This 87-nucleotide sequence from Elaeis guineensis belongs to the Rfam family "Small nucleolar RNA Z102/R77". Gene Ontology terms of the family: RNA processing and nucleolus. The organism belongs to Elaeis, within Eukaryota. The family has 9 seed sequences and 1,346 matches in Rfam 15.1.
[Rfam]
RNA sequence: GGGUGAGAUGAUGAUGGUUAAUUGUUUUCCUAUUGGUUUGAUGGGCAAAAUGAUGGCUGUUGUUGUAUUAGCUCUAUCUGAUCACUC
Numbered sequence: 001g002g003g004u005g006a007g008a009u010g011a012u013g014a015u016g017g018u019u020a021a022u023u024g025u026u027u028u029c030c031u032a033u034u035g036g037u038u039u040g041a042u043g044g045g046c047a048a049a050a051u052g053a054u055g056g057c058u059g060u061u062g063u064u065g066u067a068u069u070a071g072c073u074c075u076a077u078c079u080g081a082u083c084a085c086u087c
Stems, first nucleotide, its partner, number of pairs: 002086004040060001043058002046055001